About this RNA:
The family of this 91-nucleotide RNA sequence from Neisseria shayeganii is "Neisseria metabolic switch regulator b (RcoF1/NgncR163)". The family's RNA type in Rfam is small RNA.
[Rfam]
RNA sequence: CCAUUGAAGCGACAGCAAUGCCGUUUCAAUAGUUUCUCCUCUAUUUCUCCUUUGUAGACUUGGGCGCACAUUGCAAAAUGUGCGCAUUUUU
Number, nucleotide and partner (000 for none) at each position: 001c000002c000003a030004u029005u028006g027007a026008a025009g024010c023011g022012a000013c000014a000015g000016c000017a000018a000019u000020g000021c000022c011023g010024u009025u008026u007027c006028a005029a004030u003031a000032g000033u000034u000035u000036c000037u000038c000039c000040u058041c057042u056043a055044u054045u000046u000047c000048u000049c000050c000051u000052u000053u000054g044055u043056a042057g041058a040059c000060u000061u000062g000063g000064g085065c084066g083067c082068a081069c080070a079071u078072u000073g000074c000075a000076a000077a000078a071079u070080g069081u068082g067083c066084g065085c064086a000087u000088u000089u000090u000091u000
Rfam describes the family as follows. Sibling sRNA described and independently named in three publications. The organism belongs to Neisseria shayeganii, within Bacteria. Rfam links the family to the GO terms tricarboxylic acid cycle, protein binding and regulation of translation, ncRNA-mediated.